Shown here is a 243-nucleotide RNA, a member of the family "IS605-orfB-I RNA".

RNA sequence: AUCUUAUAAAGAUGUAUAAAUGCAAGACAAUUUAGCAUCUCCCUUUAAGGUAAUUUAUUUUAGAAGCUCUAGCAACAAACUUUAUUGUUUUGGUUAAAAAAUCAAUGAAUUGGAAUUCAUUUUUCAGUUGAAAUGAAGUGAGCGAAAGUGAAAUGGGUUAACCGUGAGACCCUGAGUUGAAAAACUCUAAAAUUGAUCUAAAAAUAGGAUUUCUUUAUUUUCUUAUUUUUUAGUUACGAUAAC
Numbered sequence: 001a002u003c004u005u006a007u008a009a010a011g012a013u014g015u016a017u018a019a020a021u022g023c024a025a026g027a028c029a030a031u032u033u034a035g036c037a038u039c040u041c042c043c044u045u046u047a048a049g050g051u052a053a054u055u056u057a058u059u060u061u062a063g064a065a066g067c068u069c070u071a072g073c074a075a076c077a078a079a080c081u082u083u084a085u086u087g088u089u090u091u092g093g094u095u096a097a098a099a100a101a102u103c104a105a106u107g108a109a110u111u112g113g114a115a116u117u118c119a120u121u122u123u124u125c126a127g128u129u130g131a132a133a134u135g136a137a138g139u140g141a142g143c144g145a146a147a148g149u150g151a152a153a154u155g156g157g158u159u160a161a162c163c164g165u166g167a168g169a170c171c172c173u174g175a176g177u178u179g180a181a182a183a184a185c186u187c188u189a190a191a192a193u194u195g196a197u198c199u200a201a202a203a204a205u206a207g208g209a210u211u212u213c214u215u216u217a218u219u220u221u222c223u224u225a226u227u228u229u230u231u232a233g234u235u236a237c238g239a240u241a242a243c
Base pairs, nucleotide, nucleotide: 001051002050003049004048005047006046008044010040011039012038013037014036015035017034018033019032020031021030022028066149067148068147070145072143073142080138081137082136083135084134085133086132108129109128111126112125113124114123115122155172156171157170158169159168161240163238164237165236166235167193174187175186176185177184178183198233199232200231201230202229203228204227205225206224207223208222